[Rfam]
RNA sequence: UGAUUUUUAUUGCGAAGCAUUGGCAAAAAUAUUGUGAGUAAAAAUAUUGCUAAAAUUUUCCAAGAAAUGAGAAAUACAAGAAAUGUAAGAAAUAAAGAAAAGCAAUGCAAGUAAGAAAAAAUGGUGGCUCUGAUUGGAUUUGAACCAACGACCCCUACCA
Numbered sequence: 001u002g003a004u005u006u007u008u009a010u011u012g013c014g015a016a017g018c019a020u021u022g023g024c025a026a027a028a029a030u031a032u033u034g035u036g037a038g039u040a041a042a043a044a045u046a047u048u049g050c051u052a053a054a055a056u057u058u059u060c061c062a063a064g065a066a067a068u069g070a071g072a073a074a075u076a077c078a079a080g081a082a083a084u085g086u087a088a089g090a091a092a093u094a095a096a097g098a099a100a101a102g103c104a105a106u107g108c109a110a111g112u113a114a115g116a117a118a119a120a121a122u123g124g125u126g127g128c129u130c131u132g133a134u135u136g137g138a139u140u141u142g143a144a145c146c147a148a149c150g151a152c153c154c155c156u157a158c159c160a
Stems, first nucleotide, its partner, number of pairs: 024049003030043001032041002068080001122157003126153002131150002134148004
Bacterial antisense RNA HPnc0260: a 160-nucleotide sequence from Helicobacter macacae. Pairs were carried over by alignment from the consensus structure, which was predicted with CMfinder. It scores 68 bits against the family's covariance model.